RNA sequence: CCAGGGAUGUAGCCCACACCCGUGGGCCGGGCGAGGACGGGGGACCCAGUGUGGCCAGUGAGUGCACGUGCGCAGCACGUGUCAAUGAGGACGAGAUCUGGCCUGGGGGUGAAGUCGCACAUGCGACGGGGCACCUGACGCCCCAACCCGACAGCUAACCCCGCAGGCGCGCGUCAGGAAGGAACA
Dot-bracket structure: ((................................)).(((((....(..........................................................)(((.....((((....))))..((((.......))))...))).........))))).......................